[Rfam]
RNA sequence: UGUCUCCUCCACCCUCCUCCUUUGGUGGAUUAAACCCAAGCACCUCACAGUGCUUGGGUUUUUUUUA
Numbered sequence: 001u002g003u004c005u006c007c008u009c010c011a012c013c014c015u016c017c018u019c020c021u022u023u024g025g026u027g028g029a030u031u032a033a034a035c036c037c038a039a040g041c042a043c044c045u046c047a048c049a050g051u052g053c054u055u056g057g058g059u060u061u062u063u064u065u066u067a
Base pairs, nucleotide, nucleotide: 008029009028010027011026012025013024033060034059035058036057037056038055039054040053041052042051
A member of the RNA family "Betaproteobacteria toxic small RNA" from Limnobacter sp. MED105, 67 nucleotides long. Rfam's curators put it in the seed alignment. Lineage of the source: Bacteria > Pseudomonadati > Betaproteobacteria > Burkholderiaceae > Limnobacter. About the family: Overexpression in amino aid rich medium attenuates growth, suggesting role in repressing amino acid intake and metabolism.